Nucleotides: 091
Base pairs, nucleotide, nucleotide: 001091002090003089004088005087006086007085011026012025013024014023015022016021028044029043030042031041032040047065048064049063050062051061068082069081070080071079
Number, partner (000 for none) and nucleotide at each position: 001091g002090g003089a004088g005087g006086c007085g008000u009000u010000u011026c012025u013024c014023g015022u016021c017000u018000g019000g020000u021016g022015a023014c024013g025012g026011g027000c028044g029043c030042a031041g032040u033000c034000u035000u036000c037000a038000a039000a040032a041031c042030u043029g044028c045000u046000g047065u048064g049063g050062g051061u052000g053000a054000g055000u056000a057000c058000c059000u060000c061051a062050c063049c064048c065047a066000g067000g068082c069081g070080g071079g072000u073000u074000c075000g076000a077000u078000u079071c080070c081069c082068g083000u084000c085007c086006g087005c088004c089003u090002c091001c

The family of this 91-nucleotide sequence from Epidermidibacterium keratini is "Selenocysteine transfer RNA". Pairs were carried over by alignment from the consensus structure, which is taken from published work. It scores 81 bits against the family's covariance model.